[Rfam]
RNA sequence: UCGCGUCAAGCGCCGUAGGCAGGAGCGGGGGACCCAAGGUAAGUGCCGGGCCCGGCAGUUGACUGCCGGAACCGGCUGGGGGUGAAGCCGCGCGACCCGCGACAGCGGGAGCGCGGCCGGGCAACUCAACCGGCCCGAACCCGACAGCUCACCUCGCAGGCAUCGGUGAGGGGAUCG
Numbered sequence: 001u002c003g004c005g006u007c008a009a010g011c012g013c014c015g016u017a018g019g020c021a022g023g024a025g026c027g028g029g030g031g032a033c034c035c036a037a038g039g040u041a042a043g044u045g046c047c048g049g050g051c052c053c054g055g056c057a058g059u060u061g062a063c064u065g066c067c068g069g070a071a072c073c074g075g076c077u078g079g080g081g082g083u084g085a086a087g088c089c090g091c092g093c094g095a096c097c098c099g100c101g102a103c104a105g106c107g108g109g110a111g112c113g114c115g116g117c118c119g120g121g122c123a124a125c126u127c128a129a130c131c132g133g134c135c136c137g138a139a140c141c142c143g144a145c146a147g148c149u150c151a152c153c154u155c156g157c158a159g160g161c162a163u164c165g166g167u168g169a170g171g172g173g174a175u176c177g
Stems, first nucleotide, its partner, number of pairs: 001024002025157006035079001080142003088116006119136004
Dot-bracket structure: ((....................))((((((....(...........................................)(((.....((((((.................))))))..((((..........))))...))).........))))))....................
Source information: The record is a 177-nucleotide RNA sequence from Streptomyces sp. NRRL B-3648, which matches "c-di-AMP riboswitch aptamer (ydaO/yuaA leader)" in Rfam. The source organism's lineage runs through Bacteria, Actinomycetota, Kitasatosporales, Streptomycetaceae and Streptomyces. It scores 55 bits against the family's covariance model.